[Rfam]
The family of this 128-nucleotide sequence from Pocillopora damicornis is "U11 spliceosomal RNA". Taxonomically the source falls in Pocillopora (Eukaryota, Metazoa, Hexacorallia, Scleractinia). The family is grouped with related families in Rfam's "U1 clan". It scores 93 bits against the family's covariance model. For this family Rfam cites "Additional low-abundance human small nuclear ribonucleoproteins: U11, U12, etc" (Montzka and Steitz, Proc Natl Acad Sci U S A, 1988). The family's RNA type in Rfam is spliceosomal small nuclear RNA. The family has 72 seed sequences and 2,595 matches in Rfam 15.1. Gene Ontology terms of the family: mRNA 5'-splice site recognition, pre-mRNA 5'-splice site binding and U11 snRNP.

RNA sequence: UAAAAGGGCCUUUGCCAUCACUGGCACGUGAGACCUAAGGGGCUCGCGCGGAAUCGCCAUCCAGAGAUUUCGGAGGCAUAAUCUUUGGACUCCCGCGGCAGUUGGUAGCCUCUAGCACCGACGCCCAU
Dot-bracket structure: .......((((((((((....)))))((((((.((....)).))))))(((((((..........)))))))))))).................(.(((.(((((..((.....)).)))))))))..